[Rfam]
RNA sequence: CUGCGUUAUGAUGUAUACUUUACCAUGCUAAUUCUGAUAUUAUGAAAGAAAAAUAUUUUAUUUAUUACUGAACGCAAA
Numbered sequence: 001c002u003g004c005g006u007u008a009u010g011a012u013g014u015a016u017a018c019u020u021u022a023c024c025a026u027g028c029u030a031a032u033u034c035u036g037a038u039a040u041u042a043u044g045a046a047a048g049a050a051a052a053a054u055a056u057u058u059u060a061u062u063u064a065u066u067a068c069u070g071a072a073c074g075c076a077a078a
Base pairs, nucleotide, nucleotide: 002076003075004074005073006072007071

The family of this 78-nucleotide RNA sequence from Funneliformis caledonium is "Small nucleolar RNA snoR53Y". The literature on the family includes a 2001 paper in RNA by Brown et al., "Multiple snoRNA gene clusters from Arabidopsis". The family has 7 seed sequences and 513 matches in Rfam 15.1. It is annotated as a C/D-box small nucleolar RNA. It scores 43 bits against the family's covariance model. Clan: snoR53 clan. The source organism's lineage runs through Eukaryota, Glomeromycota, Glomeromycetes, Glomerales and Funneliformis.